[Rfam]
RNA sequence: GGAAGAGCAAGCCAAUUGGCGGUGGCCACGGUCUUGAAAACCGUUCGGAGUUAAUGACUCGUGUGGGUUCGACUCCCACUUCUUCC
Numbered sequence: 001g002g003a004a005g006a007g008c009a010a011g012c013c014a015a016u017u018g019g020c021g022g023u024g025g026c027c028a029c030g031g032u033c034u035u036g037a038a039a040a041c042c043g044u045u046c047g048g049a050g051u052u053a054a055u056g057a058c059u060c061g062u063g064u065g066g067g068u069u070c071g072a073c074u075c076c077c078a079c080u081u082c083u084u085c086c
Stems, first nucleotide, its partner, number of pairs: 001086007011026004016021001028044005048060004064078004

The family of this 86-nucleotide RNA sequence from Kordia sp. SMS9 is "Selenocysteine transfer RNA".
The family has 109 seed sequences and 4,211 matches in Rfam 15.1.
The literature on the family includes a 2000 paper in FEBS Lett by Mizutani and Goto, "Eukaryotic selenocysteine tRNA has the 9/4 secondary structure".
It scores 51 bits against the family's covariance model.
The base pairs follow the family's consensus structure, which is taken from published work.
Taxonomically the source falls in Kordia (Bacteria, Pseudomonadati, Flavobacteriia, Flavobacteriales).